Shown here is a 164-nucleotide RNA from Alicyclobacillus acidocaldarius, a member of the family "M-box riboswitch aptamer (ykoK leader)".
The pairing is the family consensus, mapped onto this sequence.
M-box riboswitch, also know as ykoK leader is described as a metaloregulatory RNA that sense divalent metals and function as a genetic control element of genes related to divalent metal transport in bacteria. It was first reported upstream of the B.subtilis ykoK gene and genes with related functions in other bacteria.
NCBI's taxonomy places the organism under Bacteria, Bacillati, Alicyclobacillaceae, Alicyclobacillus acidocaldarius, Alicyclobacillus acidocaldarius subsp. acidocaldarius.
[Rfam]
RNA sequence: UGCGUUCCUCGUUAGGCGAGGCUACUAUACGAACACAAGCCACUGCCCGGAAACGUGGAGACACGCCAAUGGGUAGAACAGGUAUGGCCGGCUUAAGGCUUUACCUAACGUGGCUGGGUUUUCCCUACGUCGUAUAGUGCCAAAGCUCAACCAGGGGGAUGUGC
Numbered sequence: 001u002g003c004g005u006u007c008c009u010c011g012u013u014a015g016g017c018g019a020g021g022c023u024a025c026u027a028u029a030c031g032a033a034c035a036c037a038a039g040c041c042a043c044u045g046c047c048c049g050g051a052a053a054c055g056u057g058g059a060g061a062c063a064c065g066c067c068a069a070u071g072g073g074u075a076g077a078a079c080a081g082g083u084a085u086g087g088c089c090g091g092c093u094u095a096a097g098g099c100u101u102u103a104c105c106u107a108a109c110g111u112g113g114c115u116g117g118g119u120u121u122u123c124c125c126u127a128c129g130u131c132g133u134a135u136a137g138u139g140c141c142a143a144a145g146c147u148c149a150a151c152c153a154g155g156g157g158g159a160u161g162u163g164c
Base pairs, nucleotide, nucleotide: 006159007158008157009156010155011151012150013096015147016146017145020141021140022139025137026136027135028134029133030132031131032130039114040113041112042111043110045074046073047072048071049070054065055064056063057062081105082104083103084102087099088098089097116125117124118123